[Rfam]
RNA: Purine riboswitch aptamer
RNA sequence: AUAAUCUUAAAUAUUAUUACUCGUAUAUCCUCGAUAAUAUGGUCUGAGUGUCUCAGCCUGGUUCCCUUGAAAGAACCGGACUACGAGUUAAAGUCUUUGGCUG
Numbered sequence: 001a002u003a004a005u006c007u008u009a010a011a012u013a014u015u016a017u018u019a020c021u022c023g024u025a026u027a028u029c030c031u032c033g034a035u036a037a038u039a040u041g042g043u044c045u046g047a048g049u050g051u052c053u054c055a056g057c058c059u060g061g062u063u064c065c066c067u068u069g070a071a072a073g074a075a076c077c078g079g080a081c082u083a084c085g086a087g088u089u090a091a092a093g094u095c096u097u098u099g100g101c102u103g
Stems, first nucleotide, its partner, number of pairs: 019088007030048004058079007